[Rfam]
RNA sequence: UUGUUCACAACGAUCUUGUGUUAACGUUAAACAAAUUAAGCCUCGACCAUAGGUGGCCAUAAAAUUAAUUGCAUCAGCACUUAUAUGCUCCGAUGCCAUAAUUA
Numbered sequence: 001u002u003g004u005u006c007a008c009a010a011c012g013a014u015c016u017u018g019u020g021u022u023a024a025c026g027u028u029a030a031a032c033a034a035a036u037u038a039a040g041c042c043u044c045g046a047c048c049a050u051a052g053g054u055g056g057c058c059a060u061a062a063a064a065u066u067a068a069u070u071g072c073a074u075c076a077g078c079a080c081u082u083a084u085a086u087g088c089u090c091c092g093a094u095g096c097c098a099u100a101a102u103u104a
Stems, first nucleotide, its partner, number of pairs: 003058001005056004009028004014023001035050002041045001066104005071096002074093002077090001078087002
Vibrio RNA AS9: a 104-nucleotide sequence from Pseudoalteromonas denitrificans. Identified by direct cloning an parallel sequencing experiments with 5S/tRNA depletion. Confirmed by Northern blot. The match comes from Rfam's covariance-model search (76 bits). Lineage of the source: Bacteria > Pseudomonadati > Alteromonadales > Pseudoalteromonas > Pseudoalteromonas denitrificans. Rfam classes the family as an antisense RNA.